[Rfam]
RNA sequence: AAAGAAAAAACGGGGAGCUGGCAAAAGAGCCGGCUGAGAGGAAGCGUUUCCUUCGCUUCGACCCGCAACCUGAUUUGGAUAAUGCCAACGUAGGGAUCAAUACCAAGGAGAGA
Numbered sequence: 001a002a003a004g005a006a007a008a009a010a011c012g013g014g015g016a017g018c019u020g021g022c023a024a025a026a027g028a029g030c031c032g033g034c035u036g037a038g039a040g041g042a043a044g045c046g047u048u049u050c051c052u053u054c055g056c057u058u059c060g061a062c063c064c065g066c067a068a069c070c071u072g073a074u075u076u077g078g079a080u081a082a083u084g085c086c087a088a089c090g091u092a093g094g095g096a097u098c099a100a101u102a103c104c105a106a107g108g109a110g111a112g113a
Stems, first nucleotide, its partner, number of pairs: 006101001010097001011065004017034005041059005069094004075088004

This 113-nucleotide RNA from Mordavella massiliensis belongs to the Rfam family "TPP riboswitch aptamer (THI element)". Rfam links the family to the GO term thiamine pyrophosphate binding. The match comes from Rfam's covariance-model search (56 bits). The organism belongs to Mordavella, within Bacteria. The family's consensus secondary structure is taken from published work.